The record is a 130-nucleotide RNA from Tetrahymena thermophila, which matches "U4 spliceosomal RNA" in Rfam. For this family Rfam cites "The uRNA database" (Zwieb, Nucleic Acids Res, 1997). It is annotated as a spliceosomal small nuclear RNA. The base pairs follow the family's consensus structure, which is taken from published work. Taxonomically the source falls in Tetrahymena thermophila (Eukaryota, Alveolata, Oligohymenophorea, Tetrahymenidae). U4 small nuclear RNA (U4 snRNA) is a component of the major U2-dependent spliceosome. Clan: U4 clan. Rfam 15.1 lists 32,178 matches to the family in 2,547 species.

[Rfam]
RNA sequence: AACCUCGCGACAGGGGCAAUAUAGCAGCAAGUGACGGUUAACUGAUGCGCUAUUAUUGCUAGUUGAAAACUACUUCAAUAAGUGGAAACGACGCUUGCGUCGGGUCCCAAUUUCUGGAAGGUCGUAUGAC
Numbered sequence: 001a002a003c004c005u006c007g008c009g010a011c012a013g014g015g016g017c018a019a020u021a022u023a024g025c026a027g028c029a030a031g032u033g034a035c036g037g038u039u040a041a042c043u044g045a046u047g048c049g050c051u052a053u054u055a056u057u058g059c060u061a062g063u064u065g066a067a068a069a070c071u072a073c074u075u076c077a078a079u080a081a082g083u084g085g086a087a088a089c090g091a092c093g094c095u096u097g098c099g100u101c102g103g104g105u106c107c108c109a110a111u112u113u114c115u116g117g118a119a120g121g122u123c124g125u126a127u128g129a130c
Stems, first nucleotide, its partner, number of pairs: 021053005027048003036042001084107003089102005121130003